Rfam assigns this 74-nucleotide RNA from Panicum miliaceum to the family "Small nucleolar RNA SNORD18". Gene Ontology terms of the family: RNA processing and nucleolus. For this family Rfam cites "Two different snoRNAs are encoded in introns of amphibian and human L1 ribosomal protein genes" (Prislei et al., Nucleic Acids Res, 1993). Lineage of the source: Eukaryota > Streptophytina > Liliopsida > Petrosaviidae > Panicum sect. Panicum.
RNA sequence: GGGAGGUGAAGAAGAAACAAUUGGUCCGUGUUUCUGACAAUCUGUUGAUGAAAGAAACUUGCACUUCUGAUCCC
Numbered sequence: 001g002g003g004a005g006g007u008g009a010a011g012a013a014g015a016a017a018c019a020a021u022u023g024g025u026c027c028g029u030g031u032u033u034c035u036g037a038c039a040a041u042c043u044g045u046u047g048a049u050g051a052a053a054g055a056a057a058c059u060u061g062c063a064c065u066u067c068u069g070a071u072c073c074c
Stems, first nucleotide, its partner, number of pairs: 001074004